[Rfam]
Group II catalytic intron D1-D4-4: a 135-nucleotide RNA from Magnetococcus marinus. The organism belongs to Magnetococcus marinus, within Bacteria. For this family Rfam cites "The ins and outs of group II introns" (Bonen and Vogel, Trends Genet, 2001). The family has 90 seed sequences and 840 matches in Rfam 15.1. Rfam's curators put it in the seed alignment. Group II introns are found in rRNA, tRNA and mRNA of organelles in fungi, plants and protists, and also in mRNA in bacteria.
RNA sequence: CGGCGGGAGUCAGUCCUGCAAGGGUAAUAACCAAAUCCCUUUAGCUUGGAUGGCGGGGUGGCGGGAGACCAAAGCCUCGGAGUCCAUCGACAAAUGCCGCUUUAGGUGGCAGCGAGUUAUCAGGCCGUAACAACA
Numbered sequence: 001c002g003g004c005g006g007g008a009g010u011c012a013g014u015c016c017u018g019c020a021a022g023g024g025u026a027a028u029a030a031c032c033a034a035a036u037c038c039c040u041u042u043a044g045c046u047u048g049g050a051u052g053g054c055g056g057g058g059u060g061g062c063g064g065g066a067g068a069c070c071a072a073a074g075c076c077u078c079g080g081a082g083u084c085c086a087u088c089g090a091c092a093a094a095u096g097c098c099g100c101u102u103u104a105g106g107u108g109g110c111a112g113c114g115a116g117u118u119a120u121c122a123g124g125c126c127g128u129a130a131c132a133a134c135a
Stems, first nucleotide, its partner, number of pairs: 020041005049088005054079006063070002095111006112128003